[Rfam]
RNA sequence: AUCCUUAUGCUCGGGAAAUACGCAUAUCAGUGAGGAUUCGUUCCGAGAUUGUGUUUUUGCUGGUUGAAAUUUAAUUAAUUAUAAACCAGACCGUACUCCUCAUGGCUCGUCUGCGUCCCGUCUCCUUGUGAGUUGGGUAGUGGGCAGUGCUACACUUAAUUCCGUGGCAUUGUAGAGCGCAUGCAGGGAAUUUUUGGCAUCAUUUCACACAUG
Numbered sequence: 001a002u003c004c005u006u007a008u009g010c011u012c013g014g015g016a017a018a019u020a021c022g023c024a025u026a027u028c029a030g031u032g033a034g035g036a037u038u039c040g041u042u043c044c045g046a047g048a049u050u051g052u053g054u055u056u057u058u059g060c061u062g063g064u065u066g067a068a069a070u071u072u073a074a075u076u077a078a079u080u081a082u083a084a085a086c087c088a089g090a091c092c093g094u095a096c097u098c099c100u101c102a103u104g105g106c107u108c109g110u111c112u113g114c115g116u117c118c119c120g121u122c123u124c125c126u127u128g129u130g131a132g133u134u135g136g137g138u139a140g141u142g143g144g145c146a147g148u149g150c151u152a153c154a155c156u157u158a159a160u161u162c163c164g165u166g167g168c169a170u171u172g173u174a175g176a177g178c179g180c181a182u183g184c185a186g187g188g189a190a191u192u193u194u195u196g197g198c199a200u201c202a203u204u205u206c207a208c209a210c211a212u213g
Base pairs, nucleotide, nucleotide: 020054021053022052023051024050026049027048028047034044035043036042097188098187099186101183102182103181104180105178106177107176
Rfam assigns this 213-nucleotide RNA from Nakaseomyces glabratus to the family "U4 spliceosomal RNA". The family's RNA type in Rfam is spliceosomal small nuclear RNA. The source organism's lineage runs through Eukaryota, Fungi, Dikarya, Saccharomycotina and Nakaseomyces. Rfam describes the family as follows. U4 small nuclear RNA (U4 snRNA) is a component of the major U2-dependent spliceosome. A search with the family's covariance model found it, with a score of 71 bits.